Shown here is a 153-nucleotide sequence from Microcebus murinus, a member of the family "Small Cajal body specific RNA 1". A reference for the family is Darzacq et al. (2002), "Cajal body-specific small nuclear RNAs: a novel class of 2'-O-methylation and pseudouridylation guide RNAs", EMBO J. The family has 29 seed sequences and 715 matches in Rfam 15.1. The source organism's lineage runs through Eukaryota, Deuterostomia, Chordata, Lemuriformes and Microcebus. By type it is a small Cajal body RNA.
[Rfam]
RNA sequence: AAUUACAAUACUACCAAACAAUGAAAUAUUAGGUAGCCAUUUAAAAGUCACAUUUAGCUGGGUUUAAGAAGUGCAAUAUUAAAACAAAAGCCAUGAGACUUGUAAGCCCAGUGUGUAAAGAUACACUCUGAGUUAUAACUCAGAGGCACAGUU
Numbered sequence: 001a002a003u004u005a006c007a008a009u010a011c012u013a014c015c016a017a018a019c020a021a022u023g024a025a026a027u028a029u030u031a032g033g034u035a036g037c038c039a040u041u042u043a044a045a046a047g048u049c050a051c052a053u054u055u056a057g058c059u060g061g062g063u064u065u066a067a068g069a070a071g072u073g074c075a076a077u078a079u080u081a082a083a084a085c086a087a088a089a090g091c092c093a094u095g096a097g098a099c100u101u102g103u104a105a106g107c108c109c110a111g112u113g114u115g116u117a118a119a120g121a122u123a124c125a126c127u128c129u130g131a132g133u134u135a136u137a138a139c140u141c142a143g144a145g146g147c148a149c150a151g152u153u
Stems, first nucleotide, its partner, number of pairs: 004073003013063003017059001019057001021053003026048001027046001029044006090147003111126006127144007